A member of the RNA family "SAH (S-adenosyl-L-homocysteine) riboswitch aptamer" from Trinickia caryophylli, 108 nucleotides long.
RNA sequence: GUUUCCGAGGAGCGUUGCGACGGACCACUCCGCCAGGCUCGGAAACUUCACUCGGACCCCCGGUGCGGCUUAUGCCCCGGCGGCUCCCCUGAACGGCGCUCACGUCUA
Numbered sequence: 001g002u003u004u005c006c007g008a009g010g011a012g013c014g015u016u017g018c019g020a021c022g023g024a025c026c027a028c029u030c031c032g033c034c035a036g037g038c039u040c041g042g043a044a045a046c047u048u049c050a051c052u053c054g055g056a057c058c059c060c061c062g063g064u065g066c067g068g069c070u071u072a073u074g075c076c077c078c079g080g081c082g083g084c085u086c087c088c089c090u091g092a093a094c095g096g097c098g099c100u101c102a103c104g105u106c107u108a
Base pairs, nucleotide, nucleotide: 002045003044004043005042006041007040008039021032022031023030024029